[Rfam]
RNA sequence: AGGAAGGGCUGGUUUGUGGGUCUGGGUUCCCCGCCGCCCCCCUCCAGCCUGCCUGGGGGGUCGGUGAGCCCCGACCUGCUGCCGUGAG
Numbered sequence: 001a002g003g004a005a006g007g008g009c010u011g012g013u014u015u016g017u018g019g020g021u022c023u024g025g026g027u028u029c030c031c032c033g034c035c036g037c038c039c040c041c042c043u044c045c046a047g048c049c050u051g052c053c054u055g056g057g058g059g060g061u062c063g064g065u066g067a068g069c070c071c072c073g074a075c076c077u078g079c080u081g082c083c084g085u086g087a088g
Base pairs, nucleotide, nucleotide: 004085006083008082009081011080012079018077019076020075021074027068028067029066030064031063033061034060035059037057038056039055
Source information:
A member of the RNA family "NoRC associated RNA, pRNA" from Athene cunicularia, 88 nucleotides long. The family's consensus secondary structure is taken from published work. Its family is annotated with chromatin remodeling in the Gene Ontology. For this family Rfam cites "The structure of NoRC-associated RNA is crucial for targeting the chromatin remodelling complex NoRC to the nucleolus" (Mayer et al., EMBO Rep, 2008).